RNA sequence: UGCCGGCCUGAGUGCAGCGGUGUUUACAACUAACUGCCAGUUACGGAUCUCUUUGUUCCUUCUCCACGCCAACUGCUUCACUUGACUAGCCUUAG
Numbered sequence: 001u002g003c004c005g006g007c008c009u010g011a012g013u014g015c016a017g018c019g020g021u022g023u024u025u026a027c028a029a030c031u032a033a034c035u036g037c038c039a040g041u042u043a044c045g046g047a048u049c050u051c052u053u054u055g056u057u058c059c060u061u062c063u064c065c066a067c068g069c070c071a072a073c074u075g076c077u078u079c080a081c082u083u084g085a086c087u088a089g090c091c092u093u094a095g
Base pairs, nucleotide, nucleotide: 002090003089005087006086008084010083011082014079016074017073020070022069028057029056030055032053033052
This 95-nucleotide RNA from Gorilla gorilla belongs to the Rfam family "Y RNA". About the family: Y RNAs are components of the Ro ribonucleoprotein particle (Ro RNP), in association with Ro60 and La proteins. The Y RNAs and Ro60 and La proteins are well conserved, but the function of the Ro RNP is not known. In humans the RNA component can be one of four small RNAs -- hY1, hY3, hY4 and hY5. A reference for the family is Teunissen et al. (2000), "Conserved features of Y RNAs: a comparison of experimentally derived secondary structures", Nucleic Acids Res. Rfam 15.1 lists 26,986 matches to the family in 650 species. Rfam classes the family as a non-coding RNA gene. Pairs were carried over by alignment from the consensus structure, which is taken from published work. The match comes from Rfam's covariance-model search (41 bits). The source organism's lineage runs through Eukaryota, Opisthokonta, Metazoa, Homininae and Gorilla gorilla.